[Rfam]
The record is an 84-nucleotide sequence from Culex flavivirus, which matches "Insect-specific Flavivirus 3' UTR cis-acting replication element (CRE)" in Rfam. NCBI's taxonomy places the organism under Viruses, Orthornavirae, Flasuviricetes, Flaviviridae, Orthoflavivirus. From the family's description: Flavi_ISFV_CRE is a Insect specific Flavivirus family. Flavivirus 3' UTR cis-acting replication element (CRE) plays a crucial role in the virus replication and is thought to be needed for the formation of a 'replication complex', it is composed of a small hairpin (sHP) and a larger structural element (3'SL). It has been shown that mutations in sHP are lethal for viruses. The family's consensus secondary structure was predicted with LocARNA.
RNA sequence: CUCCCGAAAUGUGUAUAGUAACAGAGCAUGCCUGCAGCAGCAGGUCUCCACCGUUAGGAGACUUGUUGCGGGCAAGCUCUUGUU
Number, nucleotide and partner (000 for none) at each position: 001c000002u000003c000004c000005c000006g000007a000008a000009a000010u000011g000012u000013g000014u000015a000016u000017a000018g000019u000020a084021a083022c082023a081024g079025a078026g077027c076028a000029u074030g073031c072032c071033u070034g069035c068036a000037g000038c000039a067040g066041c065042a064043g063044g062045u061046c060047u059048c058049c057050a000051c000052c000053g000054u000055u000056a000057g049058g048059a047060g046061a045062c044063u043064u042065g041066u040067u039068g035069c034070g033071g032072g031073c030074a029075a000076g027077c026078u025079c024080u000081u023082g022083u021084u020

A reference for the family is Fernandez-Sanles et al. (2017), "Functional Information Stored in the Conserved Structural RNA Domains of Flavivirus Genomes", Front Microbiol.